[Rfam]
RNA sequence: AAACAGGCCGUGAAGAGGAGUAGUAGUCCGACCCCUUAUCUUUGUCGGUAGCAGCGAAAAUGCCGACGCCAGAGAGCCGGUGCUUGGUGCAAACCGGUAUAAGGAAGGACGAACUCGCCUCGGAGCCGCCCCCGCGAAAUCGGUCGUUGUCGAUUGACGAUCCGCAGGUAGUUGGGGCCGUAUCCCGCGUUAAGGGAAAAUGAGGUUCUUGUGUCGCCGUUUAUCGGCGCAUGCGAGGACGAAAAAAGGGUGGUACCGCGAGCGCAAGCCUUCGCCCCUUUA
Numbered sequence: 001a002a003a004c005a006g007g008c009c010g011u012g013a014a015g016a017g018g019a020g021u022a023g024u025a026g027u028c029c030g031a032c033c034c035c036u037u038a039u040c041u042u043u044g045u046c047g048g049u050a051g052c053a054g055c056g057a058a059a060a061u062g063c064c065g066a067c068g069c070c071a072g073a074g075a076g077c078c079g080g081u082g083c084u085u086g087g088u089g090c091a092a093a094c095c096g097g098u099a100u101a102a103g104g105a106a107g108g109a110c111g112a113a114c115u116c117g118c119c120u121c122g123g124a125g126c127c128g129c130c131c132c133c134g135c136g137a138a139a140u141c142g143g144u145c146g147u148u149g150u151c152g153a154u155u156g157a158c159g160a161u162c163c164g165c166a167g168g169u170a171g172u173u174g175g176g177g178c179c180g181u182a183u184c185c186c187g188c189g190u191u192a193a194g195g196g197a198a199a200a201u202g203a204g205g206u207u208c209u210u211g212u213g214u215c216g217c218c219g220u221u222u223a224u225c226g227g228c229g230c231a232u233g234c235g236a237g238g239a240c241g242a243a244a245a246a247a248g249g250g251u252g253g254u255a256c257c258g259c260g261a262g263c264g265c266a267a268g269c270c271u272u273c274g275c276c277c278c279u280u281u282a
Stems, first nucleotide, its partner, number of pairs: 007126002015121004026110004039101001041099001076098006129177004134172002179189003205240010247279004258275005
This 282-nucleotide RNA sequence from Geobacter sulfurreducens belongs to the Rfam family "T-box leader". The organism belongs to Geobacter sulfurreducens, within Bacteria. Rfam links the family to the GO term tRNA binding. Rfam's curators put it in the seed alignment.